[Rfam]
Source information: Shown here is a 118-nucleotide RNA sequence from Beta vulgaris, a member of the family "Plastid-psbA-1 3UTR RNA". For this family Rfam cites "Retrograde signaling in plants: A critical review focusing on the GUN pathway and beyond" (Richter et al., Plant Commun, 2023). Rfam describes the family as follows. Plastid psbA-1 is a non-coding RNA (ncRNA) present in plastids. It is annotated as a cis-regulatory element.
RNA sequence: UAUAAGCUCUAUGUACAAAUGGAUAACUUUUCGUUUUUAGUUAGUGUAUACGAGUUAUUCGAAAUAAAGGGGUGGUGCCGGUUUCUUGUUCUGUCAAGAAAUUGGUUAUUGCUCCUUA
Numbered sequence: 001u002a003u004a005a006g007c008u009c010u011a012u013g014u015a016c017a018a019a020u021g022g023a024u025a026a027c028u029u030u031u032c033g034u035u036u037u038u039a040g041u042u043a044g045u046g047u048a049u050a051c052g053a054g055u056u057a058u059u060c061g062a063a064a065u066a067a068a069g070g071g072g073u074g075g076u077g078c079c080g081g082u083u084u085c086u087u088g089u090u091c092u093g094u095c096a097a098g099a100a101a102u103u104g105g106u107u108a109u110u111g112c113u114c115c116u117u118a
Base pairs, nucleotide, nucleotide: 008023009022010021011020012019067117068116069115070114071113072112073111074110075109076108077107079104080103081102083100084099085098086097087096